[Rfam]
RNA: Group II catalytic intron D1-D4-1
RNA sequence: AAAUACAGUCGAAAACGGUUAGUCGCAAGAAGUCAGCAGAAGCCAUAGUAAUGACCAUUGGUCAUGAAGGGC
Dot-bracket structure: ((......(((....)))))............((....)).(((......((((((...))))))....)))